Description: Shown here is a 104-nucleotide RNA from Aneurinibacillus migulanus, a member of the family "Glycine riboswitch aptamer". From the family's description: This family represents the bacterial glycine riboswitch. The pairing is the family consensus, mapped onto this sequence. Lineage of the source: Bacteria > Bacilli > Caryophanales > Paenibacillaceae > Aneurinibacillus.

RNA sequence: UUGAUGAUUGUGGGAGAGACCGAACAGCAUGUUCGGCACCGAAGGGGCAAGUCUCAAAAAGCCUUGGGACAGAAACUCUCAGGUAAAAAGACUGCAAUUGGACG
Numbered sequence: 001u002u003g004a005u006g007a008u009u010g011u012g013g014g015a016g017a018g019a020c021c022g023a024a025c026a027g028c029a030u031g032u033u034c035g036g037c038a039c040c041g042a043a044g045g046g047g048c049a050a051g052u053c054u055c056a057a058a059a060a061g062c063c064u065u066g067g068g069a070c071a072g073a074a075a076c077u078c079u080c081a082g083g084u085a086a087a088a089a090g091a092c093u094g095c096a097a098u099u100g101g102a103c104g
Stems, first nucleotide, its partner, number of pairs: 006099008020036004038084003041080002045078003